Shown here is a 148-nucleotide RNA from Pseudomonas fluvialis, a member of the family "PrrF RNA". The family's consensus secondary structure is taken from published work. A search with the family's covariance model found it, with a score of 120 bits. From the family's description: PrrF RNA is a small RNA involved in iron homeostasis and is found exclusively in Pseudomonas species. The literature on the family includes a 2004 paper in Proc Natl Acad Sci U S A by Wilderman et al., "Identification of tandem duplicate regulatory small RNAs in Pseudomonas aeruginosa involved in iron homeostasis". Gene Ontology term of the family: sRNA-mediated gene silencing. The organism belongs to Pseudomonas, within Bacteria.
RNA sequence: UUGCGCCAUUUAUGAGAAUAGUUAUUAUUAACUCAACUGGCCGCGAGGCCAGCCAGAUAGCGGAAAGGUCUGGCAGUCUGACCCUUCAGGUUAUCUCCUCAUCAGGCUAAUCACGGUUUUUGACCCGGCUCUGCCGGGUCUUUUUUUG
Numbered sequence: 001u002u003g004c005g006c007c008a009u010u011u012a013u014g015a016g017a018a019u020a021g022u023u024a025u026u027a028u029u030a031a032c033u034c035a036a037c038u039g040g041c042c043g044c045g046a047g048g049c050c051a052g053c054c055a056g057a058u059a060g061c062g063g064a065a066a067g068g069u070c071u072g073g074c075a076g077u078c079u080g081a082c083c084c085u086u087c088a089g090g091u092u093a094u095c096u097c098c099u100c101a102u103c104a105g106g107c108u109a110a111u112c113a114c115g116g117u118u119u120u121u122g123a124c125c126c127g128g129c130u131c132u133g134c135c136g137g138g139u140c141u142u143u144u145u146u147u148g
Base pairs, nucleotide, nucleotide: 037052038051039050040049041048042047061089063087064086065085067083097106098105099104122140123139124138125137126136127135128134129133
Dot-bracket structure: ....................................((((((....))))))........(.(((.(...............).))).).......(((....)))...............((((((((...))))))))........